[Rfam]
RNA sequence: CCCCAGUGAGGAAACAAAUCACACGUCUUACCUCUGUCCUAGCCCUAGAACCUGAAAAGAUGAACCCACUGGGGCUGGCUGGGGGAGGAGAGGAGAACUUGUUCCAGAAGGAACUGUCUGAGGGGG
Number, nucleotide and partner (000 for none) at each position: 001c125002c124003c123004c122005a000006g000007u000008g000009a000010g000011g000012a000013a000014a000015c000016a000017a000018a000019u000020c000021a000022c000023a000024c000025g000026u000027c000028u000029u000030a000031c000032c000033u000034c000035u000036g000037u000038c000039c000040u000041a000042g000043c000044c000045c000046u000047a000048g000049a000050a000051c000052c000053u000054g000055a000056a000057a000058a000059g000060a000061u000062g000063a000064a000065c000066c000067c000068a000069c000070u000071g000072g000073g000074g000075c000076u000077g000078g000079c000080u000081g000082g000083g000084g000085g000086a000087g000088g000089a000090g000091a000092g000093g000094a000095g000096a000097a000098c000099u000100u000101g000102u000103u000104c000105c000106a000107g000108a000109a000110g000111g000112a000113a000114c000115u000116g000117u000118c000119u000120g000121a000122g004123g003124g002125g001126g000
Small nucleolar RNA SNORD22: a 126-nucleotide sequence from Echinops telfairi. The family has 49 seed sequences and 1,081 matches in Rfam 15.1. Taxonomically the source falls in Echinops (Eukaryota, Vertebrata, Sarcopterygii, Tenrecidae). It is annotated as a C/D-box small nucleolar RNA. Gene Ontology terms of the family: nucleolus and RNA processing. Pairs were carried over by alignment from the consensus structure, which was predicted with PFOLD.